[Rfam]
RNA sequence: UGCAGGCGCACUCUGUGUCACAUUGAAUUAUCUCAUGUGAUGACAAUUUGUUACCCUUGCUAGAGUAAGUUGAUGAAGCUGCGACUUAUCCAUGUGAUUGAGUUUUUCCAGCUGAUUGCAUUGAAUGCGCGCUUUACAUUAC
Numbered sequence: 001u002g003c004a005g006g007c008g009c010a011c012u013c014u015g016u017g018u019c020a021c022a023u024u025g026a027a028u029u030a031u032c033u034c035a036u037g038u039g040a041u042g043a044c045a046a047u048u049u050g051u052u053a054c055c056c057u058u059g060c061u062a063g064a065g066u067a068a069g070u071u072g073a074u075g076a077a078g079c080u081g082c083g084a085c086u087u088a089u090c091c092a093u094g095u096g097a098u099u100g101a102g103u104u105u106u107u108c109c110a111g112c113u114g115a116u117u118g119c120a121u122u123g124a125a126u127g128c129g130c131g132c133u134u135u136a137c138a139u140u141a142c
Base pairs, nucleotide, nucleotide: 002060003059004057005056006055010051011050014045015044016043017041018040019039020038021037022036023035025034026033066141067140068139072134073133078132079131082129083128089124090123092121093120094119095118096117097116098115099114

The record is a 142-nucleotide sequence from Drosophila mojavensis, which matches "Small nucleolar RNA psi18S-841/snoR66" in Rfam.
Rfam 15.1 lists 108 matches to the family in 46 species.
Clan: SNORA28 clan.
Pairs were carried over by alignment from the consensus structure, which was predicted with RNAfold.
Gene Ontology terms of the family: RNA processing and nucleolus.
Rfam describes the family as follows. psi18S-841 is a member of the H/ACA class of snoRNA. This family is responsible for guiding the modification of uridine 841 in Drosophila 18S rRNA to pseudouridine.